RNA sequence: AAAAAAGCAGGGUGCUGCUCUCUGUAUAAGCAUUGUCCUCGUAUACUUUAGGAAUAUCAUAUUCAUUGUUAUUGGGUGAACCGGUUUACACCGUAUAAUGUUGAUUGGUUCAGUAAAUGAUGACACAUUU
Numbered sequence: 001a002a003a004a005a006a007g008c009a010g011g012g013u014g015c016u017g018c019u020c021u022c023u024g025u026a027u028a029a030g031c032a033u034u035g036u037c038c039u040c041g042u043a044u045a046c047u048u049u050a051g052g053a054a055u056a057u058c059a060u061a062u063u064c065a066u067u068g069u070u071a072u073u074g075g076g077u078g079a080a081c082c083g084g085u086u087u088a089c090a091c092c093g094u095a096u097a098a099u100g101u102u103g104a105u106u107g108g109u110u111c112a113g114u115a116a117a118u119g120a121u122g123a124c125a126c127a128u129u130u
Stems, first nucleotide, its partner, number of pairs: 005048003011037002014034001016032002063123008077112006

Small nucleolar RNA snoR74: a 130-nucleotide sequence from Leersia perrieri. The family's consensus secondary structure was predicted with WAR. Taxonomically the source falls in Leersia (Eukaryota, Streptophytina, Spermatophyta, Oryzeae). It scores 107 bits against the family's covariance model.